[Rfam]
RNA: Burkholderia RNA 7 (anti-hemB)
Organism: Roseateles saccharophilus
RNA sequence: UCCCCUGCUUCUCCCUCCCUGAGCAGGCGCCUCCGCGAUGACAGCGGAGGUCGUUCCGCCCCGGCUGCGUGCUGGGGUUUCUUUUU
Numbered sequence: 001u002c003c004c005c006u007g008c009u010u011c012u013c014c015c016u017c018c019c020u021g022a023g024c025a026g027g028c029g030c031c032u033c034c035g036c037g038a039u040g041a042c043a044g045c046g047g048a049g050g051u052c053g054u055u056c057c058g059c060c061c062c063g064g065c066u067g068c069g070u071g072c073u074g075g076g077g078u079u080u081c082u083u084u085u086u
Base pairs, nucleotide, nucleotide: 004027005026006025007024008023009022029051030050031049032048033047034046035045058078059077060076061075062074063073064072065071